[Rfam]
Nucleotides: 078
Base pairs, nucleotide, nucleotide: 001078002077003076004075005074
Number, partner (000 for none) and nucleotide at each position: 001078u002077u003076a004075g005074g006000u007000a008000u009000g010000a011000a012000g013000a014000a015000a016000a017000g018000a019000a020000a021000a022000u023000c024000a025000a026000u027000c028000g029000g030000a031000u032000u033000c034000c035000c036000a037000a038000u039000g040000a041000a042000u043000a044000a045000u046000c047000c048000a049000u050000g051000a052000u053000u054000u055000c056000u057000c058000a059000a060000c061000c062000a063000g064000c065000u066000a067000c068000u069000u070000c071000u072000g073000a074005c075004c076003u077002a078001a
The family of this 78-nucleotide RNA from Striga asiatica is "Small nucleolar RNA R12". A search with the family's covariance model found it, with a score of 65 bits. From the family's description: snoR12 is a C/D box small nucleolar RNA, which acts as a methylation guide for 25S ribosomal RNA in plants. snoR12 has been alternatively named snoZ44 in Arabidopsis and snoZ131 in rice. A reference for the family is Chen et al. (2003), "The high diversity of snoRNAs in plants: identification and comparative study of 120 snoRNA genes from Oryza sativa", Nucleic Acids Res.